[Rfam]
RNA sequence: CGACCCGCCCGCUUCAAAAGCUUUAAGAACCAGGGGAAGAACCUUCCUGACCCCACCUCACCCGCCGCUCACUCGGACGGGUGACGCACCCCAACUCAACUGGCGCAUAUGCCAUGACGCGGUGCAAGCUCAGCCUCGACAACAGAACACGACCGCAGAAAUGCGGCGGCCCCCGGCCGGGACUGGCAUCCCGAUCGAGGGCCUCACCAACGAGGAAGAGAUCGCUUCCCC
Number, nucleotide and partner (000 for none) at each position: 001c000002g000003a000004c000005c000006c000007g065008c064009c000010c000011g000012c000013u000014u000015c000016a000017a000018a000019a000020g000021c000022u000023u000024u000025a000026a000027g000028a000029a000030c000031c000032a000033g000034g000035g000036g000037a000038a000039g000040a000041a000042c000043c000044u000045u000046c000047c000048u000049g000050a000051c000052c000053c000054c000055a000056c000057c000058u000059c000060a000061c000062c000063c000064g008065c007066c000067g000068c000069u084070c083071a082072c081073u080074c079075g000076g000077a000078c000079g074080g073081g072082u071083g070084a069085c000086g000087c000088a000089c000090c000091c000092c000093a000094a000095c000096u000097c000098a000099a000100c145101u144102g143103g000104c000105g000106c000107a000108u000109a000110u000111g000112c000113c000114a000115u000116g000117a000118c000119g000120c000121g000122g000123u000124g000125c000126a000127a000128g000129c000130u000131c000132a000133g000134c000135c000136u000137c000138g000139a000140c000141a000142a000143c102144a101145g100146a000147a000148c000149a000150c000151g000152a000153c000154c000155g000156c000157a000158g000159a000160a000161a000162u000163g000164c000165g000166g000167c000168g203169g202170c201171c200172c199173c000174c197175g196176g000177c000178c000179g192180g191181g190182a189183c000184u000185g000186g000187c000188a000189u182190c181191c180192c179193g000194a000195u000196c175197g174198a000199g172200g171201g170202c169203c168204u000205c000206a000207c000208c000209a000210a000211c000212g000213a000214g229215g228216a227217a226218g225219a000220g000221a000222u000223c000224g000225c218226u217227u216228c215229c214230c000231c000
The record is a 231-nucleotide sequence from Streptomyces pristinaespiralis, which matches "Streptomyces sRNA 4677" in Rfam. The family's RNA type in Rfam is small RNA. Rfam describes the family as follows. Located in the intergenic region between anti-sigma factor SCO4677 gene and a putative regulatory protein gene SCO4676. scr4677 expression requires the SCO4677 activity and scr4677 sRNA itself seem to affect the levels of the SCO4676-associated transcripts. Lineage of the source: Bacteria > Bacillati > Actinomycetota > Kitasatosporales > Streptomyces pristinaespiralis.